Notes:
Early nodulin 40: a 245-nucleotide sequence from Populus trichocarpa. For this family Rfam cites "Identification of conserved secondary structures and expansion segments in enod40 RNAs reveals new enod40 homologues in plants" (Gultyaev and Roussis, Nucleic Acids Res, 2007). The sequence is in the family's curated seed alignment.
RNA sequence: AUGGAAAUCUCUUGUCAAGAAUACUCAUCCAUCCAAGGCCCUUGAGGAGCGAGGGGGGGUUUUGGAGCGAGGGAUCCCUCACCCUCCUCCAAAAUUCAACAGUUUGCCUGUGCUUAGCCAUUGUCGACUAUGCUAACUACAUAAUGAAGCUUUUGCUCUAAAAGCUAGCUGGCAGAGUCUUCGGUUAAUGCAUGCCUGGCAAACCGGCAAGUCACAGAACGGCAACGGGCUCGGUCACGAGUCUU
Numbered sequence: 001a002u003g004g005a006a007a008u009c010u011c012u013u014g015u016c017a018a019g020a021a022u023a024c025u026c027a028u029c030c031a032u033c034c035a036a037g038g039c040c041c042u043u044g045a046g047g048a049g050c051g052a053g054g055g056g057g058g059g060u061u062u063u064g065g066a067g068c069g070a071g072g073g074a075u076c077c078c079u080c081a082c083c084c085u086c087c088u089c090c091a092a093a094a095u096u097c098a099a100c101a102g103u104u105u106g107c108c109u110g111u112g113c114u115u116a117g118c119c120a121u122u123g124u125c126g127a128c129u130a131u132g133c134u135a136a137c138u139a140c141a142u143a144a145u146g147a148a149g150c151u152u153u154u155g156c157u158c159u160a161a162a163a164g165c166u167a168g169c170u171g172g173c174a175g176a177g178u179c180u181u182c183g184g185u186u187a188a189u190g191c192a193u194g195c196c197u198g199g200c201a202a203a204c205c206g207g208c209a210a211g212u213c214a215c216a217g218a219a220c221g222g223c224a225a226c227g228g229g230c231u232c233g234g235u236c237a238c239g240a241g242u243c244u245u
Stems, first nucleotide, its partner, number of pairs: 064090003102204006122188001228243005
Pairs were carried over by alignment from the consensus structure, which is taken from published work.